[Rfam]
RNA: Makes More Granules Regulator RNA (mmgR)
RNA sequence: AGGUCUCGCCCUUUUGGGCGUUUCCUCCCUAAUGACUUGGCCGCGCCCUCACCGGCGCGGCCUUUUUUUCACGCCGC
Dot-bracket structure: .......((((....))))...................(((((((((......)))))))))...............